[Rfam]
RNA sequence: GACGACCGGUCGGACACCCCUAGGUGCUCGGCCCACAAGUGGAGGCUCCGAACUCCCACCCGACCGCCCUUUGGGACGGCGGGUCAACCCCGGUCAGACGGCUGUCGUCGCCCCGCGCGAGGAAGCCGUCCGAAAGUGCGCCCCGUGGCAUCACGGCGGUCGCUCCGGUAGUGCGAGGAGCCCCGCCUGUGAUCGUCCGGGGCAUUUUUU
Numbered sequence: 001g002a003c004g005a006c007c008g009g010u011c012g013g014a015c016a017c018c019c020c021u022a023g024g025u026g027c028u029c030g031g032c033c034c035a036c037a038a039g040u041g042g043a044g045g046c047u048c049c050g051a052a053c054u055c056c057c058a059c060c061c062g063a064c065c066g067c068c069c070u071u072u073g074g075g076a077c078g079g080c081g082g083g084u085c086a087a088c089c090c091c092g093g094u095c096a097g098a099c100g101g102c103u104g105u106c107g108u109c110g111c112c113c114c115g116c117g118c119g120a121g122g123a124a125g126c127c128g129u130c131c132g133a134a135a136g137u138g139c140g141c142c143c144c145g146u147g148g149c150a151u152c153a154c155g156g157c158g159g160u161c162g163c164u165c166c167g168g169u170a171g172u173g174c175g176a177g178g179a180g181c182c183c184c185g186c187c188u189g190u191g192a193u194c195g196u197c198c199g200g201g202g203c204a205u206u207u208u209u210u
Stems, first nucleotide, its partner, number of pairs: 004095006012029002030085005036062001039059004043054002064079003067075003097130005103124001105123002108120002140203006146195003152191003155187005162181005